BsrG: a 252-nucleotide sequence from Shouchella clausii. bsrE, bsrG and bsrH pair through intermolecular interactions with antisense sRNAs. Rfam links the family to the GO terms toxin activity and autolysis. The family has 6 seed sequences and 614 matches in Rfam 15.1. On this family, see Saito et al., Gene 2008: "Novel small RNA-encoding genes in the intergenic regions of Bacillus subtilis". It is annotated as a small RNA. NCBI's taxonomy places the organism under Bacteria, Bacillota, Bacillaceae, Shouchella, Shouchella clausii.
RNA sequence: AACAAUAGCAUAACGGUUACUCAAGGGUGGUCGGCACACUCCCAUGAAAGGGGGUGUUGCUGUAUGACAGUAUUUGAAGGAAUUUCCCUUAUGUUGACGUUUGGGCUUCUGAUCGUUGCAAUGCUGUCAUUUCACAACCACAAAAAAUAAUCCACCCUUGAGUUAGUGGCUCAGGUGGAUUAUUCGUCCAAUCGGCCGAUCCCUUGCAGGGAUCCGAGCUAUUGUUUGACUGAAGGUGUGACAGCACCUUCA
Numbered sequence: 001a002a003c004a005a006u007a008g009c010a011u012a013a014c015g016g017u018u019a020c021u022c023a024a025g026g027g028u029g030g031u032c033g034g035c036a037c038a039c040u041c042c043c044a045u046g047a048a049a050g051g052g053g054g055u056g057u058u059g060c061u062g063u064a065u066g067a068c069a070g071u072a073u074u075u076g077a078a079g080g081a082a083u084u085u086c087c088c089u090u091a092u093g094u095u096g097a098c099g100u101u102u103g104g105g106c107u108u109c110u111g112a113u114c115g116u117u118g119c120a121a122u123g124c125u126g127u128c129a130u131u132u133c134a135c136a137a138c139c140a141c142a143a144a145a146a147a148u149a150a151u152c153c154a155c156c157c158u159u160g161a162g163u164u165a166g167u168g169g170c171u172c173a174g175g176u177g178g179a180u181u182a183u184u185c186g187u188c189c190a191a192u193c194g195g196c197c198g199a200u201c202c203c204u205u206g207c208a209g210g211g212a213u214c215c216g217a218g219c220u221a222u223u224g225u226u227u228g229a230c231u232g233a234a235g236g237u238g239u240g241a242c243a244g245c246a247c248c249u250u251c252a
Stems, first nucleotide, its partner, number of pairs: 001226005007220003011216001014198005020162008029152003036057008066128007079094001081092001104119001165184003199213004231252009